[Rfam]
Nucleotides: 095
Base pairs, nucleotide, nucleotide: 001091002090003089004088005087006086007085010083011082015078016074017073018072019071021069033061034060035059037057038056
Number, partner (000 for none) and nucleotide at each position: 001091a002090g003089c004088u005087g006086g007085u008000c009000c010083g011082a012000u013000g014000g015078u016074a017073g018072u019071g020000g021069g022000u023000u024000a025000u026000c027000a028000g029000a030000a031000c032000u033061u034060a035059u036000u037057a038056a039000c040000a041000u042000u043000a044000g045000u046000g047000u048000c049000a050000c051000u052000a053000a054000a055000g056038u057037u058000g059035a060034u061033a062000u063000a064000c065000a066000a067000c068000u069021u070000g071019c072018a073017c074016u075000g076000c077000u078015a079000a080000a081000u082011u083010u084000a085007a086006c087005u088004g089003g090002c091001u092000u093000u094000a095000a